[Rfam]
RNA sequence: CUCCUCAUAGCUCAGCAGGAUAGAGCGCAGAAUUCCUAAUUCUGAGGCCAUAGGUUCGAAUCCUAUUGGGGAGG
Numbered sequence: 001c002u003c004c005u006c007a008u009a010g011c012u013c014a015g016c017a018g019g020a021u022a023g024a025g026c027g028c029a030g031a032a033u034u035c036c037u038a039a040u041u042c043u044g045a046g047g048c049c050a051u052a053g054g055u056u057c058g059a060a061u062c063c064u065a066u067u068g069g070g071g072a073g074g
Stems, first nucleotide, its partner, number of pairs: 001073007010026004028044005050066005
Shown here is a 74-nucleotide RNA sequence from Campylobacter devanensis, a member of the family "tRNA". The family's consensus secondary structure is taken from published work. It scores 66 bits against the family's covariance model.